The family of this 152-nucleotide sequence from Pelagimonas varians is "Ruegeria cis2 sRNA". Its family is annotated with regulation of gene expression in the Gene Ontology. A search with the family's covariance model found it, with a score of 82 bits.

[Rfam]
RNA sequence: CUAGAAUUUCGCGGAUUGUAAUCCAAAAACGCAAAUCCGCGCGAUUGGUCGAUACAGUGAAACAGCGGGUUCCAAUCGAACAUCUUCAACAUGAACGGCGGCAGGGUGUUGGCCACAAACAUCUUGCCUGACGCAAUCAUAUUGGCCCGCUG
Dot-bracket structure: .(.(..((....((.......))....))..).).(..(((........)).)..)......(((((.((((.....))))....((((.(((....((((((((((.(((....)))..)))))).))).).....))).))))..)))))